RNA: mir-2060 microRNA precursor family
RNA sequence: GUUUAUCUGUGUGUGGAGUGUUAAGCACCAAGGACAGGCAUGUUUGCUUGUGUGUGGGUAGUGUUCAGCACCAGGGACAGGCAUGUUAACUC
Dot-bracket structure: ...(.(((((.......(((((.(((((.(.(.(((((((....))))))).).....).))))).))))).....))))).).........